This 50-nucleotide sequence from Halalkalibacter suaedae belongs to the Rfam family "Streptococcus sRNA SpF59 (ldcC RNA)".
RNA sequence: UGACCACUUACACUGUAAGCUAAGCCAUACGGACAGCGGGUCAAAGCCGA
Numbered sequence: 001u002g003a004c005c006a007c008u009u010a011c012a013c014u015g016u017a018a019g020c021u022a023a024g025c026c027a028u029a030c031g032g033a034c035a036g037c038g039g040g041u042c043a044a045a046g047c048c049g050a
Base pairs, nucleotide, nucleotide: 001043002042003041004040005039007019008018009017010016011015
NCBI's taxonomy places the organism under Bacteria, Bacillati, Caryophanales, Bacillaceae, Halalkalibacter. It scores 43 bits against the family's covariance model.